[Rfam]
RNA sequence: UUGCUAAAUAGAGGAGCGGAUGAACAAAAGUACCGUGCGCGCGGACAAAAGGCAGAUUUUGGUGCGCGGGAAAGGGUAUCUCCGCCGAAGCGCCGUUCGUUUGCCCGAACGGUUCGCUGGGCGCAAAGGUCAAUACCCUUGCGACUGUCACCGACGUGGAGAACUAUUUUUGCA
Numbered sequence: 001u002u003g004c005u006a007a008a009u010a011g012a013g014g015a016g017c018g019g020a021u022g023a024a025c026a027a028a029a030g031u032a033c034c035g036u037g038c039g040c041g042c043g044g045a046c047a048a049a050a051g052g053c054a055g056a057u058u059u060u061g062g063u064g065c066g067c068g069g070g071a072a073a074g075g076g077u078a079u080c081u082c083c084g085c086c087g088a089a090g091c092g093c094c095g096u097u098c099g100u101u102u103g104c105c106c107g108a109a110c111g112g113u114u115c116g117c118u119g120g121g122c123g124c125a126a127a128g129g130u131c132a133a134u135a136c137c138c139u140u141g142c143g144a145c146u147g148u149c150a151c152c153g154a155c156g157u158g159g160a161g162a163a164c165u166a167u168u169u170u171u172g173c174a
Stems, first nucleotide, its partner, number of pairs: 006169006016085005024077002033069008089118004093112007119146002122143005128137002148159004
Dot-bracket structure: .....((((((....(((((...((.......((((((((.....................))))))))......))...)))))...(((((((((((......)))))))..))))((.(((((.((......)).))))).)).((((....))))....)))))).....
Rfam assigns this 174-nucleotide RNA from Candidatus Borkfalkia ceftriaxoniphila to the family "Lysine riboswitch aptamer". NCBI's taxonomy places the organism under Bacteria, Bacillota, Christensenellales, Christensenellaceae, Candidatus Borkfalkia.